[Rfam]
RNA sequence: UCGUAACACGAACCGGUGCUAAAGGGUCCUGCCCAAUGGCUACUGACAGGUGCUGUCGAGCGGAGACCCUUUAGCACCGGUUCGUGUUACCAA
Numbered sequence: 001u002c003g004u005a006a007c008a009c010g011a012a013c014c015g016g017u018g019c020u021a022a023a024g025g026g027u028c029c030u031g032c033c034c035a036a037u038g039g040c041u042a043c044u045g046a047c048a049g050g051u052g053c054u055g056u057c058g059a060g061c062g063g064a065g066a067c068c069c070u071u072u073a074g075c076a077c078c079g080g081u082u083c084g085u086g087u088u089a090c091c092a093a
Stems, first nucleotide, its partner, number of pairs: 003090025029065002032060001034058001036056002043049002